[Rfam]
RNA sequence: UUGAAUGCUUUCAGGGAUCAUUUCUAUAGUUUGUAACUAGAGAAGUAUGGUUGAAAGUGUCUGACCUUGCUAACCACGAUGAGGAGUUAAAGUGUUCUCUUCUGAGCAUGAAGUGUGUGGACAGUGUUGUUUUAAUGCAUCUGCUGUCUGCUAUUGAUGAGUGUUCUUGCUUUCCUUUUGGGAAGCUGGGAGGAAGAGAGCACAGACUGAGUGAU
Numbered sequence: 001u002u003g004a005a006u007g008c009u010u011u012c013a014g015g016g017a018u019c020a021u022u023u024c025u026a027u028a029g030u031u032u033g034u035a036a037c038u039a040g041a042g043a044a045g046u047a048u049g050g051u052u053g054a055a056a057g058u059g060u061c062u063g064a065c066c067u068u069g070c071u072a073a074c075c076a077c078g079a080u081g082a083g084g085a086g087u088u089a090a091a092g093u094g095u096u097c098u099c100u101u102c103u104g105a106g107c108a109u110g111a112a113g114u115g116u117g118u119g120g121a122c123a124g125u126g127u128u129g130u131u132u133u134a135a136u137g138c139a140u141c142u143g144c145u146g147u148c149u150g151c152u153a154u155u156g157a158u159g160a161g162u163g164u165u166c167u168u169g170c171u172u173u174c175c176u177u178u179u180g181g182g183a184a185g186c187u188g189g190g191a192g193g194a195a196g197a198g199a200g201c202a203c204a205g206a207c208u209g210a211g212u213g214a215u
Stems, first nucleotide, its partner, number of pairs: 001036002005032001007030003013025004049061001052059001073215001075213003092203012106164003117151003122146004126141001128139003167189002169186007
Shown here is a 215-nucleotide RNA from Mauremys mutica, a member of the family "Small nucleolar RNA U3". Rfam describes the family as follows. Small nucleolar RNAs (snoRNAs) are involved in the processing and modification of rRNA in the nucleolus. There are two main classes of snoRNAs: the box C/D class, and the box H/ACA class. Rfam classes the family as a C/D-box small nucleolar RNA. Its Rfam clan is "U3 clan". The source organism's lineage runs through Eukaryota, Craniata, Tetrapoda, Sauria and Mauremys. Pairs were carried over by alignment from the consensus structure, which is taken from published work. Rfam 15.1 lists 19,072 matches to the family in 1,215 species.